Shown here is a 74-nucleotide RNA from Hallella bergensis, a member of the family "L13-Bacteroidia ribosomal protein leader". It is annotated as a cis-regulatory leader.
RNA sequence: AGGGGCACGCUUAGAGCCCCUCGCACCUUGUGUUAAUAGUGAUGCCUUUGGCCGGGCAUCACGGUUAGUGAAUC
Numbered sequence: 001a002g003g004g005g006c007a008c009g010c011u012u013a014g015a016g017c018c019c020c021u022c023g024c025a026c027c028u029u030g031u032g033u034u035a036a037u038a039g040u041g042a043u044g045c046c047u048u049u050g051g052c053c054g055g056g057c058a059u060c061a062c063g064g065u066u067a068g069u070g071a072a073u074c
Base pairs, nucleotide, nucleotide: 001021002020003019004018005017006016033068034067035066036065037064039062040061041060042059043058044057045056046055047054